small nucleolar RNA snoR137: a 157-nucleotide RNA from Abrus precatorius. Rfam classes the family as an H/ACA-box small nucleolar RNA.
[Rfam]
RNA sequence: GUUGCUUCUUCUGGUGAGCUCUCCCUUAUUAUUUCCAGUGGGGAAUGUUCAUGUUUCCGAAGCAUAUAUAAAUAAAUUCAUCUCGAAUAACCAGUUUUAAACAGCAUGGUGUAAUCUUCUCUAAGUUACACUACGCUACCUGUCUCCUGGUACAAUU
Numbered sequence: 001g002u003u004g005c006u007u008c009u010u011c012u013g014g015u016g017a018g019c020u021c022u023c024c025c026u027u028a029u030u031a032u033u034u035c036c037a038g039u040g041g042g043g044a045a046u047g048u049u050c051a052u053g054u055u056u057c058c059g060a061a062g063c064a065u066a067u068a069u070a071a072a073u074a075a076a077u078u079c080a081u082c083u084c085g086a087a088u089a090a091c092c093a094g095u096u097u098u099a100a101a102c103a104g105c106a107u108g109g110u111g112u113a114a115u116c117u118u119c120u121c122u123a124a125g126u127u128a129c130a131c132u133a134c135g136c137u138a139c140c141u142g143u144c145u146c147c148u149g150g151u152a153c154a155a156u157u
Stems, first nucleotide, its partner, number of pairs: 003064006015051005020045001022043003090151005103137003107133005